Background
The family of this 58-nucleotide RNA from Streptococcus pantholopis is "Lacto-rpoB RNA". It scores 60 bits against the family's covariance model.
RNA sequence: AUUUGUCGUCUGAUUUGGUUGAAAUAUUGUCCAACCGAAGAUUACAGCAGUUAAAUCA
Numbered sequence: 001a002u003u004u005g006u007c008g009u010c011u012g013a014u015u016u017g018g019u020u021g022a023a024a025u026a027u028u029g030u031c032c033a034a035c036c037g038a039a040g041a042u043u044a045c046a047g048c049a050g051u052u053a054a055a056u057c058a
Stems, first nucleotide, its partner, number of pairs: 008045002014039008